[Rfam]
RNA: FMN riboswitch aptamer (RFN element)
Organism: Bacillus salinus
RNA sequence: AUAGUUCUUCGGGGUCAGGUGAAAUUCCGAGCCGGCGGUAAAUGCAUUAUGGAUGCAAAGCCCGCGAGCCGAUAAGGCAGGAUCUGGUGAAAUUCCAGAGCCGACAGUUACAGUCUGGAUGGGAGAAGAACAAA
Numbered sequence: 001a002u003a004g005u006u007c008u009u010c011g012g013g014g015u016c017a018g019g020u021g022a023a024a025u026u027c028c029g030a031g032c033c034g035g036c037g038g039u040a041a042a043u044g045c046a047u048u049a050u051g052g053a054u055g056c057a058a059a060g061c062c063c064g065c066g067a068g069c070c071g072a073u074a075a076g077g078c079a080g081g082a083u084c085u086g087g088u089g090a091a092a093u094u095c096c097a098g099a100g101c102c103g104a105c106a107g108u109u110a111c112a113g114u115c116u117g118g119a120u121g122g123g124a125g126a127a128g129a130a131c132a133a134a
Stems, first nucleotide, its partner, number of pairs: 004131007018028002031114002033103002035065004060101002070077001083099005105117003